Shown here is a 474-nucleotide part of an RNA from Prauserella flavalba, a member of the family "Bacterial large subunit ribosomal RNA".
The organism belongs to Prauserella, within Bacteria.

Nucleotides: 474
Stems, first nucleotide, its partner, number of pairs: 005023006024472004032452004038432002043067006052060002074428004079110002084105003088101001090099003115228006232424005237416003245410002250406005258393004264386003269380004274295006296355002300350004307343003311334007319327002357372001359370004438447002454466004
Number, partner (000 for none) and nucleotide at each position: 001000g002000a003000a004000u005023g006022c007021a008020g009019a010018g011000u012000g013000a014000g015000a016000a017000u018010c019009u020008c021007u022006g023005c024472c025471g026470c027469c028000g029000g030000a031000u032452g033451a034450c035449c036000a037000a038432g039431g040000g041000u042000u043067c044066c045065u046064g047063g048062g049000c050000c051000a052060g053059g054000u055000u056000g057000u058000u059053c060052c061000g062048c063047c064046c065045a066044g067043g068000g069000u070000a071000a072000g073000u074428c075427g076426g077425g078000a079110c080109c081000u082000a083000a084105g085104g086103c087000g088101a089000g090099g091098c092097c093000g094000a095000c096000a097092g098091g099090c100000g101088u102000a103086g104085u105084c106000g107000a108000u109080g110079g111000a112000c113000a114000a115228c116227g117226g118225g119224u120223u121000g122000a123000u124000a125000u126000u127000c128000c129000c130000g131000u132000a133000c134000c135000c136000g137000c138000g139000u140000g141000u142000g143000u144000g145000c146000g147000u148000c149000c150000c151000u152000g153000g154000c155000g156000a157000g158000g159000c160000a161000g162000g163000g164000g165000a166000u167000a168000c169000u170000a171000a172000c173000c174000a175000c176000c177000c178000g179000a180000g181000c182000c183000g184000u185000a186000u187000c188000a189000u190000g191000a192000c193000u194000c195000u196000u197000c198000g199000g200000a201000g202000u203000u204000g205000u206000g207000g208000u209000g210000u211000u212000g213000g214000u215000g216000a217000g218000c219000g220000u221000g222000g223120g224119g225118c226117c227116u228115g229000a230000u231000c232424c233423u234422g235421u236420a237416g238415u239414a240000g241000u242000c243000a244000a245410g246409c247000g248000a249000u250406g251405g252404g253403g254402u255000g256000a257000c258393g259392c260391a261390g262000g263000a264386a265385g266384g267000u268000a269380g270379c271378c272377c273000c274295g275294c276293c277292a278291g279290u280000c281000a282000g283000u284000g285000g286000u287000g288000a289000u290279a291278c292277u293276g294275g295274u296355g297354u298000a299000a300350g301349c302348g303347u304000g305000u306000g307343g308342c309341c310000c311334g312333u313332c314331u315330g316329g317328u318000a319327g320326g321000u322000a323000a324000a325000u326320c327319c328317g329316c330315c331314a332313g333312g334311c335000a336000u337000g338000a339000a340000g341309g342308g343307u344000g345000a346000g347303g348302c349301g350300u351000g352000a353000u354297g355296c356000g357372u358000a359370g360369c361368c362367g363000u364000u365000u366000g367362u368361g369360g370359u371000g372357a373000a374000g375000u376000a377272g378271g379270g380269u381000g382000a383000u384266c385265c386264u387000c388000u389000g390261c391260u392259g393258c394000c395000g396000a397000g398000a399000a400000a401000a402254g403253c404252c405251u406250c407000u408000a409246g410245c411000g412000a413000g414239u415238g416237c417000a418000u419000g420236u421235g422234u423233g424232g425077c426076c427075c428074g429000u430000a431039c432038c433000c434000c435000a436000a437000a438447c439446c440000g441000a442000c443000a444000c445000a446439g447438g448000u449035g450034g451033u452032c453000a454466g455465g456464u457463a458000g459000a460000g461000a462000a463457u464456a465455c466454u467000a468000a469027g470026g471025c472024g473000a474000u